[Rfam]
RNA: RNase MRP
RNA sequence: GUUCGUGCUGAAGGCCUGUUUCCUAGGCUACAAACGGAGGACUAGUUCCUUAUUCUAACGCCUAGGGGAAAGUCCCCGGACCUUGGGCAGAGAGUGCCGCGUGCGCACGCACGCAGACCUUCCCGUUUCUCACUCAUAAACCCGCCGAGAAGCAACCCCACCGUCUACGGCGGGAGAGCUGAGCGGCGUGAUAGCGGGGUGGCGUCCGUCAGCAGUGCUAGUUACACAGGCAGUGCGUCUGCGCGCGCACCAACCAAACGGGGCUCAUUCUCAGCGCGGC
Numbered sequence: 001g002u003u004c005g006u007g008c009u010g011a012a013g014g015c016c017u018g019u020u021u022c023c024u025a026g027g028c029u030a031c032a033a034a035c036g037g038a039g040g041a042c043u044a045g046u047u048c049c050u051u052a053u054u055c056u057a058a059c060g061c062c063u064a065g066g067g068g069a070a071a072g073u074c075c076c077c078g079g080a081c082c083u084u085g086g087g088c089a090g091a092g093a094g095u096g097c098c099g100c101g102u103g104c105g106c107a108c109g110c111a112c113g114c115a116g117a118c119c120u121u122c123c124c125g126u127u128u129c130u131c132a133c134u135c136a137u138a139a140a141c142c143c144g145c146c147g148a149g150a151a152g153c154a155a156c157c158c159c160a161c162c163g164u165c166u167a168c169g170g171c172g173g174g175a176g177a178g179c180u181g182a183g184c185g186g187c188g189u190g191a192u193a194g195c196g197g198g199g200u201g202g203c204g205u206c207c208g209u210c211a212g213c214a215g216u217g218c219u220a221g222u223u224a225c226a227c228a229g230g231c232a233g234u235g236c237g238u239c240u241g242c243g244c245g246c247g248c249a250c251c252a253a254c255c256a257a258a259c260g261g262g263g264c265u266c267a268u269u270c271u272c273a274g275c276g277c278g279g280c
Stems, first nucleotide, its partner, number of pairs: 003279009014231006022066007037051005071265002074263004086098004099114006116203001118201001122198003126193001130191004142186004170179002233250006